[Rfam]
RNA sequence: GUCUUAUCAAGAGAGGUGGAGGGACUGGCCCUAUGAAACCCGGCAACCAGUAUACAUUUUUAGUGUACAAUGGUGCUAAAUCCUGCAGUGUAAACUGAAAGAUGAGGA
Numbered sequence: 001g002u003c004u005u006a007u008c009a010a011g012a013g014a015g016g017u018g019g020a021g022g023g024a025c026u027g028g029c030c031c032u033a034u035g036a037a038a039c040c041c042g043g044c045a046a047c048c049a050g051u052a053u054a055c056a057u058u059u060u061u062a063g064u065g066u067a068c069a070a071u072g073g074u075g076c077u078a079a080a081u082c083c084u085g086c087a088g089u090g091u092a093a094a095c096u097g098a099a100a101g102a103u104g105a106g107g108a
Base pairs, nucleotide, nucleotide: 002107003106004105005104006103007102008101013041015040016039017038021031022030023029025085027083028082042077043076044075045074047073048072050068051067052066053065054064055063081100086097087096088095089094

Shown here is a 108-nucleotide RNA sequence from Clostridium novyi, a member of the family "SAM riboswitch aptamer (S box leader)". The family is grouped with related families in Rfam's "SAM clan". Rfam's curators write: The SAM riboswitch is found upstream of a number of genes which code for proteins involved in methionine or cysteine biosynthesis in Gram-positive bacteria. The match comes from Rfam's covariance-model search (86 bits).